Source information
The family of this 87-nucleotide sequence from Podilymbus podiceps is "Small nucleolar RNA U83B". On this family, see Duga et al., Biochim Biophys Acta 2000: "The intron-containing L3 ribosomal protein gene (RPL3): sequence analysis and identification of U43 and of two novel intronic small nucleolar RNAs". The pairing is the family consensus, mapped onto this sequence. Rfam links the family to the GO terms nucleolus and RNA processing. The organism belongs to Podilymbus, within Eukaryota.
RNA sequence: GUCGUUCAGUGAUGAGGUGUGGAAUGAGCACUGAGCAGUGUCUGUCACCCAUGGGGAGUGACUCUGCACCCGACUUCUGAGAGCAGC
Number, nucleotide and partner (000 for none) at each position: 001g087002u086003c000004g084005u083006u000007c000008a000009g000010u000011g000012a000013u000014g000015a000016g000017g000018u000019g000020u000021g000022g000023a000024a000025u000026g000027a000028g000029c000030a000031c000032u000033g000034a000035g000036c000037a000038g000039u000040g000041u000042c000043u000044g000045u000046c000047a000048c000049c000050c000051a000052u000053g000054g000055g000056g000057a000058g000059u000060g000061a000062c000063u000064c000065u000066g000067c000068a000069c000070c000071c000072g000073a000074c000075u000076u000077c000078u000079g000080a000081g000082a000083g005084c004085a000086g002087c001